[Rfam]
RNA sequence: AAAACUUUUCAAACGAAAAAAUCUGUUCUUAUCAGUUUAAUAUCUGAUACGUCCCCUACCCGGGGACCAUAUAUUAAAUUGAUUUUUGGAGCUGGGAGAUGGAAUAGGGGCUUGCUCCGUCCACUCCACGCAUCGACCUGGUAUUGCAGUACCUCCAGGACCGGUGCACCCCCU
Number, nucleotide and partner (000 for none) at each position: 001a000002a000003a000004a000005c000006u000007u000008u000009u000010c000011a000012a000013a000014c000015g000016a000017a000018a000019a000020a000021a000022u000023c000024u000025g000026u000027u000028c000029u000030u049031a048032u047033c046034a045035g044036u000037u000038u000039a000040a000041u000042a000043u000044c035045u034046g033047a032048u031049a030050c000051g067052u066053c065054c064055c063056c062057u000058a000059c000060c000061c000062g056063g055064g054065g053066a052067c051068c000069a000070u000071a000072u000073a000074u000075u000076a000077a000078a000079u000080u000081g000082a000083u000084u000085u000086u000087u000088g000089g000090a000091g000092c000093u000094g000095g127096g126097a125098g124099a000100u000101g121102g120103a000104a000105u000106a000107g118108g117109g116110g115111c000112u000113u000114g000115c110116u109117c108118c107119g000120u102121c101122c000123a000124c098125u097126c096127c095128a000129c000130g167131c166132a165133u164134c163135g162136a000137c159138c158139u157140g156141g155142u000143a000144u000145u000146g000147c000148a000149g000150u000151a000152c000153c000154u000155c141156c140157a139158g138159g137160a000161c000162c135163g134164g133165u132166g131167c130168a000169c000170c000171c000172c000173c000174u000
A member of the RNA family "U2 spliceosomal RNA" from Merluccius polli, 174 nucleotides long.
A search with the family's covariance model found it, with a score of 127 bits.
Rfam 15.1 lists 71,512 matches to the family in 2,642 species.
The base pairs follow the family's consensus structure, which is taken from published work.